[Rfam]
RNA sequence: GACAAUUUGCUCUUUUAGUAUUUCUCCAGUAGGUUUCCUCAAGGAGAAAGCCUGC
Number, nucleotide and partner (000 for none) at each position: 001g000002a000003c000004a000005a000006u000007u000008u000009g000010c000011u000012c000013u000014u000015u000016u000017a000018g000019u000020a000021u000022u000023u000024c000025u000026c000027c000028a000029g000030u000031a000032g052033g051034u050035u049036u048037c000038c046039u045040c044041a000042a000043g000044g040045a039046g038047a000048a036049a035050g034051c033052c032053u000054g000055c000
RNA: U7 small nuclear RNA
Organism: Coregonus sp. 'balchen'